Rfam assigns this 79-nucleotide sequence from Enterococcus thailandicus to the family "Enterococcus sRNA 84". Lineage of the source: Bacteria > Bacillota > Lactobacillales > Enterococcaceae > Enterococcus. The family has 5 seed sequences and 30 matches in Rfam 15.1. By type it is an antisense RNA.
Nucleotides: 079
Stems, first nucleotide, its partner, number of pairs: 019037007047071008057063001
Number, partner (000 for none) and nucleotide at each position: 001000a002000a003000c004000c005000a006000a007000c008000a009000a010000c011000a012000a013000c014000c015000u016000u017000u018000a019037u020036u021035u022034a023033c024032u025031c026000u027000c028000a029000u030000u031025g032024a033023g034022u035021a036020a037019g038000u039000a040000g041000c042000c043000u044000u045000u046000u047071c048070c049069a050068c051067c052066g053065a054064g055000c056000c057063u058000a059000a060000c061000c062000a063057a064054c065053u066052c067051g068050g069049u070048g071047g072000u073000u074000u075000u076000u077000u078000g079000a